[Rfam]
RNA: Small nucleolar RNA Z247
RNA sequence: CCACUUGAUGAAGAAGACCUUGUCCAGUACAUCAUCACUGGGCUAAAUGAAGACUUCAGCCCGAUCGUCUCCAACCUCUGCAACAAGUCCGAUCCCAUCACGGUUGGGGAGCUGUAUUCCCAGCUUGUCAACUUUGAAA
Numbered sequence: 001c002c003a004c005u006u007g008a009u010g011a012a013g014a015a016g017a018c019c020u021u022g023u024c025c026a027g028u029a030c031a032u033c034a035u036c037a038c039u040g041g042g043c044u045a046a047a048u049g050a051a052g053a054c055u056u057c058a059g060c061c062c063g064a065u066c067g068u069c070u071c072c073a074a075c076c077u078c079u080g081c082a083a084c085a086a087g088u089c090c091g092a093u094c095c096c097a098u099c100a101c102g103g104u105u106g107g108g109g110a111g112c113u114g115u116a117u118u119c120c121c122a123g124c125u126u127g128u129c130a131a132c133u134u135u136g137a138a139a
Stems, first nucleotide, its partner, number of pairs: 005137004088108006